[Rfam]
RNA: S-element
Organism: Phyllobacterium zundukense
RNA sequence: UGUCAAGACUUUUUGGCGUCGUUUUUGGCGAGCGGAUUUCUUUUGCCUUUAGAAAGGUGAAAGACAAUG
Numbered sequence: 001u002g003u004c005a006a007g008a009c010u011u012u013u014u015g016g017c018g019u020c021g022u023u024u025u026u027g028g029c030g031a032g033c034g035g036a037u038u039u040c041u042u043u044u045g046c047c048u049u050u051a052g053a054a055a056g057g058u059g060a061a062a063g064a065c066a067a068u069g
Stems, first nucleotide, its partner, number of pairs: 010064005017059004023055004028050001030048001032046005